[Rfam]
RNA sequence: UCGGUCCCGGUUCACGUGCGGCAACAUGCCGCCGACCCGGUGCC
Number, nucleotide and partner (000 for none) at each position: 001u000002c000003g044004g043005u042006c000007c040008c039009g038010g037011u000012u000013c000014a000015c034016g033017u000018g032019c031020g030021g029022c028023a000024a000025c000026a000027u000028g022029c021030c020031g019032c018033c016034g015035a000036c000037c010038c009039g008040g007041u000042g005043c004044c003

Rfam assigns this 44-nucleotide RNA from Kitasatospora kifunensis to the family "L31-Actinobacteria ribosomal protein leader". The literature on the family includes a 2020 paper in BMC Microbiol by Eckert and Weinberg, "Discovery of 20 novel ribosomal leader candidates in bacteria and archaea". The family's RNA type in Rfam is cis-regulatory leader. Pairs were carried over by alignment from the consensus structure, which is taken from published work.